Source information:
This 78-nucleotide sequence from Poecilia formosa belongs to the Rfam family "Small nucleolar RNA SNORD66". From the family's description: snoRNA HBII-142 is part of the C/D family of snoRNAs. It is the human orthologue of the mouse MBII-142 snoRNA and is predicted to guide 2'O-ribose methylation of small 18S rRNA at residue C1272. The family's consensus secondary structure was predicted with RNAalifold. Rfam links the family to the GO terms RNA processing and nucleolus. It is annotated as a C/D-box small nucleolar RNA. A search with the family's covariance model found it, with a score of 80 bits.
[Rfam]
RNA sequence: CUCUAAUGAUGACUCACUUUUUGUGCCACGUGUCUGGGCCACUGAAUUGCUCAUGAUGGUGUUGAGGAACUGAAAGAG
Numbered sequence: 001c002u003c004u005a006a007u008g009a010u011g012a013c014u015c016a017c018u019u020u021u022u023g024u025g026c027c028a029c030g031u032g033u034c035u036g037g038g039c040c041a042c043u044g045a046a047u048u049g050c051u052c053a054u055g056a057u058g059g060u061g062u063u064g065a066g067g068a069a070c071u072g073a074a075a076g077a078g
Stems, first nucleotide, its partner, number of pairs: 001078004
Dot-bracket structure: ((((......................................................................))))